[Rfam]
Nucleotides: 075
Base pairs, nucleotide, nucleotide: 002073003072004071005070006069
Number, partner (000 for none) and nucleotide at each position: 001000u002073g003072g004071a005070c006069c007000a008000g009000u010000g011000a012000u013000g014000a015000u016000g017000a018000c019000u020000g021000a022000u023000a024000u025000c026000g027000u028000a029000c030000g031000a032000g033000u034000c035000a036000u037000g038000g039000a040000u041000g042000g043000u044000g045000a046000a047000u048000a049000c050000u051000a052000u053000g054000u055000g056000u057000c058000u059000g060000a061000a062000a063000c064000u065000c066000u067000g068000a069006g070005g071004u072003c073002c074000a075000g
This 75-nucleotide RNA sequence from Balaenoptera musculus belongs to the Rfam family "Small nucleolar RNA SNORD113/SNORD114 family". Taxonomically the source falls in Balaenoptera (Eukaryota, Eumetazoa, Craniata, Artiodactyla). The family's consensus secondary structure is taken from published work. On this family, see Cavaille et al., Hum Mol Genet 2002: "Identification of tandemly-repeated C/D snoRNA genes at the imprinted human 14q32 domain reminiscent of those at the Prader-Willi/Angelman syndrome region". The family's RNA type in Rfam is C/D-box small nucleolar RNA. A search with the family's covariance model found it, with a score of 78 bits.